[Rfam]
RNA sequence: GGGGGGCAAUGGUGCUGGGCGCCCCGCGGGCUUCAAACCCGUUGGCCCGGUCUGCAAAACCGGGAGGAGGUUCGAUUCCCCUUGCCCCCU
Number, nucleotide and partner (000 for none) at each position: 001g090002g089003g088004g087005g086006g085007c084008a083009a082010u000011g023012g022013u021014g020015c019016u000017g000018g000019g015020c014021g013022c012023c011024c000025c044026g042027c041028g040029g039030g038031c000032u000033u000034c000035a000036a000037a000038c030039c029040c028041g027042u026043u000044g025045g000046c064047c063048c062049g061050g060051u000052c000053u000054g000055c000056a000057a000058a000059a000060c050061c049062g048063g047064g046065a000066g000067g081068a000069g079070g078071u000072u000073c000074g000075a000076u000077u000078c070079c069080c000081c067082u009083u008084g007085c006086c005087c004088c003089c002090u001